[Rfam]
RNA sequence: AGAGUGCAUCAUGAAUCCCGACAGGGAUACCAACCGGGUGUCACGCCACGGUGGUUCAGCAUGCGGGCCCGACGGCCAAAAACGUGUAAUCCA
Numbered sequence: 001a002g003a004g005u006g007c008a009u010c011a012u013g014a015a016u017c018c019c020g021a022c023a024g025g026g027a028u029a030c031c032a033a034c035c036g037g038g039u040g041u042c043a044c045g046c047c048a049c050g051g052u053g054g055u056u057c058a059g060c061a062u063g064c065g066g067g068c069c070c071g072a073c074g075g076c077c078a079a080a081a082a083c084g085u086g087u088a089a090u091c092c093a
Base pairs, nucleotide, nucleotide: 006064007063008062009061015028016027017026018025019024029055030054031053034051035050036049037047038046039045041089043087044086066077067076068075069074
The record is a 93-nucleotide RNA from Bacteroidales bacterium 6E, which matches "SAM-I/IV (S-adenosyl methionine) riboswitch aptamer" in Rfam. Rfam 15.1 lists 567 matches to the family in 508 species. Gene Ontology terms of the family: S-adenosylmethionine metabolic process and regulation of gene expression. The match comes from Rfam's covariance-model search (51 bits). The literature on the family includes a 2008 paper in RNA by Weinberg et al., "The aptamer core of SAM-IV riboswitches mimics the ligand-binding site of SAM-I riboswitches".